[Rfam]
RNA: Metazoan signal recognition particle RNA
Organism: Sphaeroforma arctica
RNA sequence: GUGGGAGUGUUUCACGGCACUCUGUAAGCCAAGUGGCCGGUUGGGUUUGGGAUGCUAUCAGUUGGUAGGCUAUUGCAACAAGUAGGUACAGAGCCGCCCCUAGAAUGGCGGUGUUUCCAUUAGCUCACAGGGGUAGCCCUAUGGGUGGAGGGAAUUGAAUAUAGGGAGACUGUCCCAAGCGGGCAACCGAACAGGCGAGCAUCUCAGCAUCGCUACGUCUCAGGGAUAACGGCUCGUGCGUUGUAUUGCACACUGGUAGUGGACCAGGCUCAUU
Numbered sequence: 001g002u003g004g005g006a007g008u009g010u011u012u013c014a015c016g017g018c019a020c021u022c023u024g025u026a027a028g029c030c031a032a033g034u035g036g037c038c039g040g041u042u043g044g045g046u047u048u049g050g051g052a053u054g055c056u057a058u059c060a061g062u063u064g065g066u067a068g069g070c071u072a073u074u075g076c077a078a079c080a081a082g083u084a085g086g087u088a089c090a091g092a093g094c095c096g097c098c099c100c101u102a103g104a105a106u107g108g109c110g111g112u113g114u115u116u117c118c119a120u121u122a123g124c125u126c127a128c129a130g131g132g133g134u135a136g137c138c139c140u141a142u143g144g145g146u147g148g149a150g151g152g153a154a155u156u157g158a159a160u161a162u163a164g165g166g167a168g169a170c171u172g173u174c175c176c177a178a179g180c181g182g183g184c185a186a187c188c189g190a191a192c193a194g195g196c197g198a199g200c201a202u203c204u205c206a207g208c209a210u211c212g213c214u215a216c217g218u219c220u221c222a223g224g225g226a227u228a229a230c231g232g233c234u235c236g237u238g239c240g241u242u243g244u245a246u247u248g249c250a251c252a253c254u255g256g257u258a259g260u261g262g263a264c265c266a267g268g269c270u271c272a273u274u
Base pairs, nucleotide, nucleotide: 002039003038004023005022006021007020008019009018010017011016028037029036030035042272043271044270045269046268047267048266049265050264053261054260055259056258057257058256059255060254061253062252065249066248067247072246073245075244076243077242078241079240080237091235092234093233094232095231096230098225099224101222102220103219104218106215107214108213109212110211111210112209113208114207115154116153117152118151120149121148123146124145125144126143127142129140130139131138132137155161162206164204165203166202168200171198174195175194180189181188182187